[Rfam]
RNA sequence: AACAGGCACGGGCGUCGGGGAAACUCUGCGCCCGUGCAAGCAUGUUGAGGGCAGGAAGAGACAA
Dot-bracket structure: .....(((((((((.((((.....)))))))))))))...........................
Numbered sequence: 001a002a003c004a005g006g007c008a009c010g011g012g013c014g015u016c017g018g019g020g021a022a023a024c025u026c027u028g029c030g031c032c033c034g035u036g037c038a039a040g041c042a043u044g045u046u047g048a049g050g051g052c053a054g055g056a057a058g059a060g061a062c063a064a
Stems, first nucleotide, its partner, number of pairs: 006037009016028004